[Rfam]
RNA sequence: CAGGAGCGCACGGGGUGGUCGGCCGAGGCCGGCCUGAGAGACACCCGUCGAACCUGAUCCGGGUAAUGCCGGCGGAGGGAAUGCGCGGCACGCACUCA
Numbered sequence: 001c002a003g004g005a006g007c008g009c010a011c012g013g014g015g016u017g018g019u020c021g022g023c024c025g026a027g028g029c030c031g032g033c034c035u036g037a038g039a040g041a042c043a044c045c046c047g048u049c050g051a052a053c054c055u056g057a058u059c060c061g062g063g064u065a066a067u068g069c070c071g072g073c074g075g076a077g078g079g080a081a082u083g084c085g086c087g088g089c090a091c092g093c094a095c096u097c098a
Base pairs, nucleotide, nucleotide: 006086007085008084009083010082011047012046013045014044016041017034018033019032020031021030053078054077055076059072060071061070062069
RNA: TPP riboswitch aptamer (THI element)